[Rfam]
RNA sequence: CCGCCCCGCCGGGACAUUUCCGGCGGGGCGGUUGCGACGGACCCCAGCUCACAAAGCAGGGGCUCGAUUUUGAAAUCGUAUAUAUGACCAGCAGGGGCAUCCGGGCUGGUACCCGGACUAUCUGCGGGAACCUUGGUGGCUACCAGUCGCUACACGGGGCUGGAAAUCCGCAUGGCUUCCGUCAGGUGGAGUCCCCUUACCGAGGGUGACCA
Numbered sequence: 001c002c003g004c005c006c007c008g009c010c011g012g013g014a015c016a017u018u019u020c021c022g023g024c025g026g027g028g029c030g031g032u033u034g035c036g037a038c039g040g041a042c043c044c045c046a047g048c049u050c051a052c053a054a055a056g057c058a059g060g061g062g063c064u065c066g067a068u069u070u071u072g073a074a075a076u077c078g079u080a081u082a083u084a085u086g087a088c089c090a091g092c093a094g095g096g097g098c099a100u101c102c103g104g105g106c107u108g109g110u111a112c113c114c115g116g117a118c119u120a121u122c123u124g125c126g127g128g129a130a131c132c133u134u135g136g137u138g139g140c141u142a143c144c145a146g147u148c149g150c151u152a153c154a155c156g157g158g159g160c161u162g163g164a165a166a167u168c169c170g171c172a173u174g175g176c177u178u179c180c181g182u183c184a185g186g187u188g189g190a191g192u193c194c195c196c197u198u199a200c201c202g203a204g205g206g207u208g209a210c211c212a
Stems, first nucleotide, its partner, number of pairs: 001031013040064001042062004047057003093197005098191001100117006118189005124182003128179002131175002136171004141165001143163006
A member of the RNA family "sucA-II RNA" from Pseudomonas knackmussii, 212 nucleotides long.
The family's consensus secondary structure is taken from published work.
A search with the family's covariance model found it, with a score of 137 bits.
Rfam classes the family as a cis-regulatory element.